The family of this 75-nucleotide sequence from Peribacillus loiseleuriae is "Glycine riboswitch aptamer".
RNA sequence: CUCUGGAGAGUGUCUAUUUUAAGACCACCAAAGGGGAAAGCCUUUUUAGGUAAACUUUCAGGUUUCAGGACAGAG
Dot-bracket structure: (((((......((((......)))).(((.(..(((....(.......).....))))..))).......)))))

Rfam describes the family as follows. This family represents the bacterial glycine riboswitch. Pairs were carried over by alignment from the consensus structure. Rfam links the family to the GO term glycine biosynthetic process. It scores 42 bits against the family's covariance model.